[Rfam]
RNA sequence: GUUACCUUUAAUCCAGUCCUGUGAGGCUGGCAAGGUGGAACAGAUUAGGUCUGUUAAAAGGAUCAACCACUGGGAACAGUUACCCAGUGGCUCUAUUCUUUCGAUGCAAACACCUUGCCCAUCUUAAGGCAAGGUGUUUUUUUCUU
Numbered sequence: 001g002u003u004a005c006c007u008u009u010a011a012u013c014c015a016g017u018c019c020u021g022u023g024a025g026g027c028u029g030g031c032a033a034g035g036u037g038g039a040a041c042a043g044a045u046u047a048g049g050u051c052u053g054u055u056a057a058a059a060g061g062a063u064c065a066a067c068c069a070c071u072g073g074g075a076a077c078a079g080u081u082a083c084c085c086a087g088u089g090g091c092u093c094u095a096u097u098c099u100u101u102c103g104a105u106g107c108a109a110a111c112a113c114c115u116u117g118c119c120c121a122u123c124u125u126a127a128g129g130c131a132a133g134g135u136g137u138u139u140u141u142u143u144c145u146u
Stems, first nucleotide, its partner, number of pairs: 003037006013030006061096001065092001067090008106141001108139012
RNA: PyrR binding site
Organism: Oceanobacillus picturae